[Rfam]
RNA sequence: UAUACCUUUAAAUUGAUCCAGAGAGGUCAAGAAGGAAGUCAUAUAGUUUAGAGAUGUAUUCUAUGGUAUAAGUAUGCCUUCCUUUAUGGAAGGCAUUUUUAUU
Numbered sequence: 001u002a003u004a005c006c007u008u009u010a011a012a013u014u015g016a017u018c019c020a021g022a023g024a025g026g027u028c029a030a031g032a033a034g035g036a037a038g039u040c041a042u043a044u045a046g047u048u049u050a051g052a053g054a055u056g057u058a059u060u061c062u063a064u065g066g067u068a069u070a071a072g073u074a075u076g077c078c079u080u081c082c083u084u085u086a087u088g089g090a091a092g093g094c095a096u097u098u099u100u101a102u103u
Stems, first nucleotide, its partner, number of pairs: 003037001005035005013030006038069002042065005049058002072098001074096009